[Rfam]
RNA: mir-454 microRNA precursor family
RNA sequence: GUUGCUUUACCUUGCAGACAAGACCCUAUCAAUAUUGCCUCUGCUUGCACUGACAUUAACAGAGUAGUGCAAUAUUGCUUAUAGGGUCUUGACUCUGAGGGCUG
Numbered sequence: 001g002u003u004g005c006u007u008u009a010c011c012u013u014g015c016a017g018a019c020a021a022g023a024c025c026c027u028a029u030c031a032a033u034a035u036u037g038c039c040u041c042u043g044c045u046u047g048c049a050c051u052g053a054c055a056u057u058a059a060c061a062g063a064g065u066a067g068u069g070c071a072a073u074a075u076u077g078c079u080u081a082u083a084g085g086g087u088c089u090u091g092a093c094u095c096u097g098a099g100g101g102c103u104g
Stems, first nucleotide, its partner, number of pairs: 020090010030077009041067005